[Rfam]
RNA sequence: UCAAGCCUGUGAUGAGAAAAGUUAUCCCUGUCUGAAAAAACGUGUGGAGUUUUGGUACCUGAGGCUUGU
Numbered sequence: 001u002c003a004a005g006c007c008u009g010u011g012a013u014g015a016g017a018a019a020a021g022u023u024a025u026c027c028c029u030g031u032c033u034g035a036a037a038a039a040a041c042g043u044g045u046g047g048a049g050u051u052u053u054g055g056u057a058c059c060u061g062a063g064g065c066u067u068g069u
Base pairs, nucleotide, nucleotide: 002068003067004066005065006064007063
Rfam assigns this 69-nucleotide RNA sequence from Carassius auratus to the family "Small nucleolar RNA R38". NCBI's taxonomy places the organism under Eukaryota, Opisthokonta, Gnathostomata, Euteleostomi, Carassius. It scores 54 bits against the family's covariance model.